Shown here is a 137-nucleotide RNA sequence from Ornithorhynchus anatinus, a member of the family "Small nucleolar RNA SNORA4".
The family is grouped with related families in Rfam's "SNORA4 clan".
By type it is an H/ACA-box small nucleolar RNA.
A search with the family's covariance model found it, with a score of 59 bits.
Rfam's curators write: ACA4 is a member of the H/ACA class of snoRNA that guide the sites of modification of uridines to pseudouridines.
Pairs were carried over by alignment from the consensus structure, which was predicted with PFOLD.
RNA sequence: GUUCCAAAAGCCAACGUUGCGGGGAAGGCCGUGACCAGCCUUCGCCGGGUCGGGCUCUUUGGAAGAGAAAAAAAGACCGCACUCCACGGUGGACUAUAUAUCCGGUUGUAGUUCAUUACUGUAAGGUGGCCAACAGA
Number, nucleotide and partner (000 for none) at each position: 001g000002u000003u000004c062005c061006a060007a059008a058009a000010g000011c000012c000013a056014a000015c054016g000017u052018u000019g050020c049021g000022g000023g046024g045025a000026a000027g040028g039029c038030c000031g000032u000033g000034a000035c000036c000037a000038g029039c028040c027041u000042u000043c000044g000045c024046c023047g000048g000049g020050u019051c000052g017053g000054g015055c000056u013057c000058u008059u007060u006061g005062g004063a000064a000065g000066a000067g000068a000069a000070a000071a000072a000073a000074a000075g131076a000077c129078c128079g127080c126081a000082c000083u000084c000085c000086a000087c000088g117089g116090u115091g114092g113093a112094c111095u110096a109097u108098a107099u000100a000101u000102c000103c000104g000105g000106u000107u098108g097109u096110a095111g094112u093113u092114c091115a090116u089117u088118a000119c000120u000121g000122u000123a000124a000125g000126g080127u079128g078129g077130c000131c075132a000133a000134c000135a000136g000137a000